RNA sequence: AGAGUUGGCGGCUAGGGUUCCGGCACCGAAAGGUGUGACUGGUCCGAGAGCUACCACCAACGGGGGAGACAUCCCCGUCUGGCGCACGGCGGGAUAAAAGCCCGGGAGAC
Numbered sequence: 001a002g003a004g005u006u007g008g009c010g011g012c013u014a015g016g017g018u019u020c021c022g023g024c025a026c027c028g029a030a031a032g033g034u035g036u037g038a039c040u041g042g043u044c045c046g047a048g049a050g051c052u053a054c055c056a057c058c059a060a061c062g063g064g065g066g067a068g069a070c071a072u073c074c075c076c077g078u079c080u081g082g083c084g085c086a087c088g089g090c091g092g093g094a095u096a097a098a099a100g101c102c103c104g105g106g107a108g109a110c
Stems, first nucleotide, its partner, number of pairs: 007055002010052003015045002020042002022039001023036005057082003060078006085105001087108001091103003
Rfam assigns this 110-nucleotide RNA sequence from Paenirhodobacter populi to the family "Guanidine-I riboswitch aptamer". NCBI's taxonomy places the organism under Bacteria, Pseudomonadati, Pseudomonadota, Alphaproteobacteria, Paenirhodobacter.